Rfam assigns this 82-nucleotide sequence from Silurus meridionalis to the family "mir-128 microRNA precursor family". A search with the family's covariance model found it, with a score of 76 bits. NCBI's taxonomy places the organism under Eukaryota, Bilateria, Vertebrata, Actinopteri, Silurus. The family's consensus secondary structure was predicted with RNAalifold.
RNA sequence: GGGGGGUAGGAGGCGGGGCCGUGCCACUGUCUGAGAGGCAGUACGAUUCUCACAGUGAACCGGUCUCUUUUCCAACUCCCCA
Dot-bracket structure: .....((.((....(((((((...((((((..(((.............)))))))))...)))))))....)).))......
Numbered sequence: 001g002g003g004g005g006g007u008a009g010g011a012g013g014c015g016g017g018g019c020c021g022u023g024c025c026a027c028u029g030u031c032u033g034a035g036a037g038g039c040a041g042u043a044c045g046a047u048u049c050u051c052a053c054a055g056u057g058a059a060c061c062g063g064u065c066u067c068u069u070u071u072c073c074a075a076c077u078c079c080c081c082a
Stems, first nucleotide, its partner, number of pairs: 006076002009073002015067007025057006033051003